Shown here is a 135-nucleotide RNA sequence from Aramus guarauna, a member of the family "Small nucleolar RNA SNORA58". Rfam's curators write: ACA52 is a member of the H/ACA class of snoRNA that guide the sites of modification of uridines to pseudouridines. The family has 20 seed sequences and 471 matches in Rfam 15.1. Clan: SNORA44 clan. It is annotated as an H/ACA-box small nucleolar RNA.
RNA sequence: CUGCACACCAGUAGACCUUAUCUGGUUCUUCUAAUAGCCAGACGAGGGGGAUGGUGCAUGCGAGAAAAACCUGGGGUUGCUGUAGGCUGUGAUCAGCCUGGACGUGGCUGAUUGAACUACGAUACUCCAACAUAA
Number, nucleotide and partner (000 for none) at each position: 001c000002u000003g061004c060005a059006c000007a000008c056009c000010a000011g000012u000013a000014g000015a000016c047017c046018u045019u044020a000021u042022c041023u040024g039025g000026u000027u000028c000029u000030u000031c000032u000033a000034a000035u000036a000037g000038c000039c024040a023041g022042a021043c000044g019045a018046g017047g016048g000049g000050g000051a000052u000053g000054g000055u000056g008057c000058a000059u005060g004061c003062g000063a000064g000065a000066a000067a000068a000069a000070c000071c000072u000073g128074g127075g126076g125077u000078u124079g000080c000081u121082g120083u119084a000085g000086g000087c000088u000089g000090u000091g000092a000093u111094c110095a109096g108097c107098c000099u000100g000101g000102a000103c000104g000105u000106g000107g097108c096109u095110g094111a093112u000113u000114g000115a000116a000117c000118u000119a083120c082121g081122a000123u000124a078125c076126u075127c074128c073129a000130a000131c000132a000133u000134a000135a000